Shown here is an 84-nucleotide RNA sequence from Erinaceus europaeus, a member of the family "mir-149 microRNA precursor family". A reference for the family is Lagos-Quintana et al. (2002), "Identification of tissue-specific microRNAs from mouse", Curr Biol. The family's consensus secondary structure was predicted with RNAalifold. Gene Ontology terms of the family: RISC complex and miRNA-mediated post-transcriptional gene silencing.
RNA sequence: GCCGGUGCCCGGGCUCUGGCUCCGUGUCUUCACUCCCGUGUGUCGGAGGAGGGAGGGAGGGACGGGGGCUGUGCUGAGGCACCU
Numbered sequence: 001g002c003c004g005g006u007g008c009c010c011g012g013g014c015u016c017u018g019g020c021u022c023c024g025u026g027u028c029u030u031c032a033c034u035c036c037c038g039u040g041u042g043u044c045g046g047a048g049g050a051g052g053g054a055g056g057g058a059g060g061g062a063c064g065g066g067g068g069c070u071g072u073g074c075u076g077a078g079g080c081a082c083c084u
Stems, first nucleotide, its partner, number of pairs: 007080003012075003016071001018069001020067006027060005033055005